[Rfam]
RNA sequence: CGGGUUGGCCAGGCGAUCGCGUUGGGUCCUUAUUAAAGGAGCCACCGAGGAAAGUCCGGGCUCCGCAGAGCAGGGUGGUGGGUAACGCCCACUCGGGGAAACCCGCAGGCCAGUGCCACAGAAAAGAAACCGCCGUUGAUGGUGAUCCGCUUGGAACACUGUCUGUUCGGUAAGGGUGAAAAGGUGGUGUAAGAGACCACCAGCGUUCCGGGUGACCGGAGCGGCUAGGUAAACCCCACCCGGAGCAAGGCCAUACAGGACGCGUUUGAGGGCUGCUCGCCCGAUGCGUCCGGGUAGGCCGCUUGAGGGCGCCGGCAACGGCGUUCCCAGAUGGAUGAUUGCCGCCUCCGGCCCGGUAACGGACCGGAGAUACAAAACCCGGCUUAUCGGCCAGCCCGUCCA
Numbered sequence: 001c002g003g004g005u006u007g008g009c010c011a012g013g014c015g016a017u018c019g020c021g022u023u024g025g026g027u028c029c030u031u032a033u034u035a036a037a038g039g040a041g042c043c044a045c046c047g048a049g050g051a052a053a054g055u056c057c058g059g060g061c062u063c064c065g066c067a068g069a070g071c072a073g074g075g076u077g078g079u080g081g082g083u084a085a086c087g088c089c090c091a092c093u094c095g096g097g098g099a100a101a102c103c104c105g106c107a108g109g110c111c112a113g114u115g116c117c118a119c120a121g122a123a124a125a126g127a128a129a130c131c132g133c134c135g136u137u138g139a140u141g142g143u144g145a146u147c148c149g150c151u152u153g154g155a156a157c158a159c160u161g162u163c164u165g166u167u168c169g170g171u172a173a174g175g176g177u178g179a180a181a182a183g184g185u186g187g188u189g190u191a192a193g194a195g196a197c198c199a200c201c202a203g204c205g206u207u208c209c210g211g212g213u214g215a216c217c218g219g220a221g222c223g224g225c226u227a228g229g230u231a232a233a234c235c236c237c238a239c240c241c242g243g244a245g246c247a248a249g250g251c252c253a254u255a256c257a258g259g260a261c262g263c264g265u266u267u268g269a270g271g272g273c274u275g276c277u278c279g280c281c282c283g284a285u286g287c288g289u290c291c292g293g294g295u296a297g298g299c300c301g302c303u304u305g306a307g308g309g310c311g312c313c314g315g316c317a318a319c320g321g322c323g324u325u326c327c328c329a330g331a332u333g334g335a336u337g338a339u340u341g342c343c344g345c346c347u348c349c350g351g352c353c354c355g356g357u358a359a360c361g362g363a364c365c366g367g368a369g370a371u372a373c374a375a376a377a378c379c380c381g382g383c384u385u386a387u388c389g390g391c392c393a394g395c396c397c398g399u400c401c402a
Stems, first nucleotide, its partner, number of pairs: 001398010011387001012343007020047002023044003027040004052385003056382005061245004068278004073241005078092005093107001094105004108236002113234002115230003130175002132171004139164001183201006203225001204223008249300004258291006270282004307326008